Small nucleolar RNA snR31: a 234-nucleotide RNA sequence from Naumovozyma dairenensis. A search with the family's covariance model found it, with a score of 146 bits.

RNA sequence: AACAAACAAUUGUGCCAUAUGUUUCUGUCGACGUCAUCCUAACUUUUCUUUUCCUUAGUUUGGAUUUUGGAUGUUAUCAGAAUUUUUUGUUUCUAUAAACUUUACGACAUGUGGUAGAGUGAUUUUAAUCAAAGAAAGAUGUAUCUCCAGCUGUUGAUAAAGAGGGAAAAGCCUUUUUCUUUUUCUUCGCCUUUUCAAAUCCUGAUACAGUUGGUCAUAAUUCGUUCUACAUUU
Numbered sequence: 001a002a003c004a005a006a007c008a009a010u011u012g013u014g015c016c017a018u019a020u021g022u023u024u025c026u027g028u029c030g031a032c033g034u035c036a037u038c039c040u041a042a043c044u045u046u047u048c049u050u051u052u053c054c055u056u057a058g059u060u061u062g063g064a065u066u067u068u069g070g071a072u073g074u075u076a077u078c079a080g081a082a083u084u085u086u087u088u089g090u091u092u093c094u095a096u097a098a099a100c101u102u103u104a105c106g107a108c109a110u111g112u113g114g115u116a117g118a119g120u121g122a123u124u125u126u127a128a129u130c131a132a133a134g135a136a137a138g139a140u141g142u143a144u145c146u147c148c149a150g151c152u153g154u155u156g157a158u159a160a161a162g163a164g165g166g167a168a169a170a171g172c173c174u175u176u177u178u179c180u181u182u183u184u185c186u187u188c189g190c191c192u193u194u195u196c197a198a199a200u201c202c203u204g205a206u207a208c209a210g211u212u213g214g215u216c217a218u219a220a221u222u223c224g225u226u227c228u229a230c231a232u233u234u
Stems, first nucleotide, its partner, number of pairs: 015114008024081004030075006036065004046058002084104001133228004138223002147214008162188004167183005
The organism belongs to Naumovozyma dairenensis, within Eukaryota. Pairs were carried over by alignment from the consensus structure, which was predicted with WAR.